[Rfam]
RNA sequence: CCCGGUUCAGUUCAACCCCCCGGAACUGAACCCCCGCGGCCCCCGCCUCCCCCCUGGCGGGGGCCGCCCCUU
Dot-bracket structure: ...((((((((((.........))))))))))...((((((((((((........)))))))))))).....
The record is a 72-nucleotide RNA from Nakamurella aerolata, which matches "6C RNA" in Rfam. It is annotated as a cis-regulatory element.